[Rfam]
Nucleotides: 181
Base pairs, nucleotide, nucleotide: 141178143176144175145174146173151170152169153168
Number, partner (000 for none) and nucleotide at each position: 001000c002000a003000u004000a005000a006000u007000c008000a009000a010000u011000a012000u013000g014000a015000c016000a017000c018000u019000u020000g021000g022000c023000u024000a025000g026000g027000g028000u029000c030000a031000a032000g033000u034000g035000g036000u037000a038000a039000a040000u041000u042000u043000u044000u045000c046000u047000u048000a049000c050000a051000u052000c053000u054000c055000c056000c057000c058000c059000c060000c061000a062000g063000g064000g065000g066000c067000c068000c069000a070000g071000g072000u073000a074000u075000c076000a077000u078000a079000u080000a081000u082000g083000c084000c085000c086000c087000c088000a089000a090000a091000a092000u093000a094000a095000a096000c097000a098000g099000c100000u101000u102000g103000g104000c105000a106000c107000u108000g109000a110000a111000g112000a113000a114000a115000a116000a117000c118000g119000a120000c121000c122000u123000g124000a125000a126000c127000c128000u129000c130000c131000a132000c133000a134000c135000a136000a137000a138000u139000u140000a141178g142000u143176g144175a145174a146173u147000u148000a149000c150000c151170c152169a153168a154000a155000a156000u157000g158000g159000a160000g161000u162000a163000u164000u165000u166000u167000a168153u169152u170151g171000c172000u173146g174145u175144u176143u177000u178141c179000a180000u181000a
Notes
A member of the RNA family "Antisense RNA which regulates isiA expression" from Musa balbisiana, 181 nucleotides long. Taxonomically the source falls in Musa (Eukaryota, Magnoliopsida, Liliopsida, Zingiberales). It scores 86 bits against the family's covariance model.